About this RNA
This 114-nucleotide RNA sequence from Silanimonas sp. belongs to the Rfam family "ALIL pseudoknot". A search with the family's covariance model found it, with a score of 93 bits.
RNA sequence: GGCGUUUUUUGCCCAGGCGGAGCUCGACCGCCGCGGCAAACGGUGAUCGCGUUCAUCGACGCGCAUCGCGGACUGGGGAUCGAGCCGAUCUGCAGGGAACUGAAGAUCGCCCCG
Numbered sequence: 001g002g003c004g005u006u007u008u009u010u011g012c013c014c015a016g017g018c019g020g021a022g023c024u025c026g027a028c029c030g031c032c033g034c035g036g037c038a039a040a041c042g043g044u045g046a047u048c049g050c051g052u053u054c055a056u057c058g059a060c061g062c063g064c065a066u067c068g069c070g071g072a073c074u075g076g077g078g079a080u081c082g083a084g085c086c087g088a089u090c091u092g093c094a095g096g097g098a099a100c101u102g103a104a105g106a107u108c109g110c111c112c113c114g
Stems, first nucleotide, its partner, number of pairs: 016032005074114005086109002089106003093102003

A reference for the family is Mazauric et al. (2008), "Apical loop-internal loop RNA pseudoknots: a new type of stimulator of -1 translational frameshifting in bacteria", J Biol Chem. The source organism's lineage runs through Bacteria, Pseudomonadati, Gammaproteobacteria, Lysobacterales and Silanimonas.